[Rfam]
RNA sequence: UUUAUGUUGAAGACUUCAACUUGCAGACUUAAAGAAUUUGAAGACUUCAACUUGCAGACUUAAAGAAUUUGAAGACUUCAACU
Numbered sequence: 001u002u003u004a005u006g007u008u009g010a011a012g013a014c015u016u017c018a019a020c021u022u023g024c025a026g027a028c029u030u031a032a033a034g035a036a037u038u039u040g041a042a043g044a045c046u047u048c049a050a051c052u053u054g055c056a057g058a059c060u061u062a063a064a065g066a067a068u069u070u071g072a073a074g075a076c077u078u079c080a081a082c083u
Base pairs, nucleotide, nucleotide: 005073007072008071009070010069011068014065015064016063018061022056023055024054025053029050030049032047033046034045
Shown here is an 83-nucleotide RNA from Solanum tuberosum, a member of the family "MIR8024 microRNA precursor family". It scores 60 bits against the family's covariance model. The family has 2 seed sequences and 661 matches in Rfam 15.1. The family's consensus secondary structure was predicted with RNAalifold. Gene Ontology terms of the family: RISC complex and miRNA-mediated post-transcriptional gene silencing.